[Rfam]
RNA sequence: CAGAAUAAUGGUGAGAAACCAUUACACCGAAAGACUAAGGUUUCCACGGCGAUGUUUGUCAUCCGUGGGUUAGUCGGGCCCUAAGUUGAAGCCGAACGGCGUAGGCGAUGGAUAAUCGGUUAAUAUUCCGAUACUAGCUAGCAAUAGAGAAGGGGGGACGAAGGAGUGAAAGACUUGCCUUCUGACGAAUUAGGAGGUUAAAGCCUGUAGAUAGAGGUGUAGCAGGCAAAUCCACUACACCUGUCGAAGGUGAUAGUACUGCAAUCCUUAGGGAGCGCAGAUAAUGGUCCUAAUCAUACUUCCAAGAAAAGCCUCUAAUCGUUAGGUGCUAGCUAUCCGUACCGCAAACCAACACAGGUAGUUGAGGAGAAUAUCCUAAGGUGUU
Numbered sequence: 001c002a003g004a005a006u007a008a009u010g011g012u013g014a015g016a017a018a019c020c021a022u023u024a025c026a027c028c029g030a031a032a033g034a035c036u037a038a039g040g041u042u043u044c045c046a047c048g049g050c051g052a053u054g055u056u057u058g059u060c061a062u063c064c065g066u067g068g069g070u071u072a073g074u075c076g077g078g079c080c081c082u083a084a085g086u087u088g089a090a091g092c093c094g095a096a097c098g099g100c101g102u103a104g105g106c107g108a109u110g111g112a113u114a115a116u117c118g119g120u121u122a123a124u125a126u127u128c129c130g131a132u133a134c135u136a137g138c139u140a141g142c143a144a145u146a147g148a149g150a151a152g153g154g155g156g157g158a159c160g161a162a163g164g165a166g167u168g169a170a171a172g173a174c175u176u177g178c179c180u181u182c183u184g185a186c187g188a189a190u191u192a193g194g195a196g197g198u199u200a201a202a203g204c205c206u207g208u209a210g211a212u213a214g215a216g217g218u219g220u221a222g223c224a225g226g227c228a229a230a231u232c233c234a235c236u237a238c239a240c241c242u243g244u245c246g247a248a249g250g251u252g253a254u255a256g257u258a259c260u261g262c263a264a265u266c267c268u269u270a271g272g273g274a275g276c277g278c279a280g281a282u283a284a285u286g287g288u289c290c291u292a293a294u295c296a297u298a299c300u301u302c303c304a305a306g307a308a309a310a311g312c313c314u315c316u317a318a319u320c321g322u323u324a325g326g327u328g329c330u331a332g333c334u335a336u337c338c339g340u341a342c343c344g345c346a347a348a349c350c351a352a353c354a355c356a357g358g359u360a361g362u363u364g365a366g367g368a369g370a371a372u373a374u375c376c377u378a379a380g381g382u383g384u385u
Base pairs, nucleotide, nucleotide: 006024007023008022009021010020011019025383026382027381028380033363034362035361036360039343040342044068045067046066047065048064049063053061054060075339076338077337078336080111081110085106086105087104089102091100092099093098115132116131117130118129119128135335136334137333138332139331140330141329142328143327145325147320148319151316152315153314154313155312160302161301162300163299166295172289173288174287175286177198178197179196180195181194182193199255203251204250205249206248210245211244212243217240218239219238220237221236222235225233226232259280260279261278262277349358350357365377366376367375368374

Shown here is a 385-nucleotide part of an RNA from Candidatus Cardinium hertigii, a member of the family "Bacterial large subunit ribosomal RNA". The base pairs follow the family's consensus structure, which is taken from published work. Taxonomically the source falls in Candidatus Cardinium (Bacteria, Pseudomonadati, Cytophagales, Amoebophilaceae).